[Rfam]
The record is a 134-nucleotide RNA sequence from Leptobrachium leishanense, which matches "Small nucleolar RNA SNORA8" in Rfam.
Rfam classes the family as an H/ACA-box small nucleolar RNA.
The organism belongs to Leptobrachium, within Eukaryota.
From the family's description: ACA8 is a member of the H/ACA class of snoRNA that guide the sites of modification of uridines to pseudouridines.
RNA sequence: UGCACCUGGUAUCUCCACGCAGUAGUAAUCUUCCUAUUGUGUUGGUCAUAAUGUAGUGCUAUAGGAAGUCAACUUGCAUCGUUGGUUUUCAAGCCACAUGUGUCUGUGAACCUGGUUUUUAUGUUGAUACACAU
Numbered sequence: 001u002g003c004a005c006c007u008g009g010u011a012u013c014u015c016c017a018c019g020c021a022g023u024a025g026u027a028a029u030c031u032u033c034c035u036a037u038u039g040u041g042u043u044g045g046u047c048a049u050a051a052u053g054u055a056g057u058g059c060u061a062u063a064g065g066a067a068g069u070c071a072a073c074u075u076g077c078a079u080c081g082u083u084g085g086u087u088u089u090c091a092a093g094c095c096a097c098a099u100g101u102g103u104c105u106g107u108g109a110a111c112c113u114g115g116u117u118u119u120u121a122u123g124u125u126g127a128u129a130c131a132c133a134u
Stems, first nucleotide, its partner, number of pairs: 002059004011054002014051001015045002017042009062123002065120004069115003076103004